[Rfam]
RNA sequence: UACGUACGGGCCUGACUCUUUGCUCUGCCCGUGCCAUUUUUUCUCUGGGUGAGCAAAGUUUCAGGUGUGUCCGUGA
Numbered sequence: 001u002a003c004g005u006a007c008g009g010g011c012c013u014g015a016c017u018c019u020u021u022g023c024u025c026u027g028c029c030c031g032u033g034c035c036a037u038u039u040u041u042u043c044u045c046u047g048g049g050u051g052a053g054c055a056a057a058g059u060u061u062c063a064g065g066u067g068u069g070u071c072c073g074u075g076a
Stems, first nucleotide, its partner, number of pairs: 002074003006070002010066006018058004023053003028049003

Rfam assigns this 76-nucleotide RNA sequence from Habropoda laboriosa to the family "mir-87 microRNA precursor family".
The literature on the family includes a 2007 paper in Genome Res by Ruby et al., "Evolution, biogenesis, expression, and target predictions of a substantially expanded set of Drosophila microRNAs".
The family's consensus secondary structure was predicted with RNAalifold.
The family has 44 seed sequences and 420 matches in Rfam 15.1.
NCBI's taxonomy places the organism under Eukaryota, Metazoa, Ecdysozoa, Neoptera, Habropoda.